[Rfam]
RNA sequence: AUGCAGGUACGGUGACAUGGUGCCAAACACCAUCGCAGGAAAGAUCUUCGGUUCGAUCUGCUCUCUCAGUGGCGUGCUUGUAAUCGCCCUGCCCGUCCCCGUCAUCGUGUCCAAU
Numbered sequence: 001a002u003g004c005a006g007g008u009a010c011g012g013u014g015a016c017a018u019g020g021u022g023c024c025a026a027a028c029a030c031c032a033u034c035g036c037a038g039g040a041a042a043g044a045u046c047u048u049c050g051g052u053u054c055g056a057u058c059u060g061c062u063c064u065c066u067c068a069g070u071g072g073c074g075u076g077c078u079u080g081u082a083a084u085c086g087c088c089c090u091g092c093c094c095g096u097c098c099c100c101g102u103c104a105u106c107g108u109g110u111c112c113a114a115u
Base pairs, nucleotide, nucleotide: 001115002114006111008109009108010107011106012105014103015102016101019098020097022096023095038078039077041075050064051063

Rfam assigns this 115-nucleotide RNA sequence from Channa argus to the family "Potassium channel RNA editing signal".
The base pairs follow the family's consensus structure, which is taken from published work.
A search with the family's covariance model found it, with a score of 81 bits.
Rfam describes the family as follows. This family represents a group of sequences related to the human potassium channel Kv1.1 hairpin element which directs the efficient modification of an adenosine to inosine by an adenosine deaminase acting on RNA (ADAR). The ADAR modification causes an isoleucine/valine recoding event which lies in the ion-conducting pore of the potassium channel. It is thought that this editing event targets the process of fast inactivation and allows a more rapid recovery from inactivation at negative potentials.
It is annotated as a cis-regulatory element.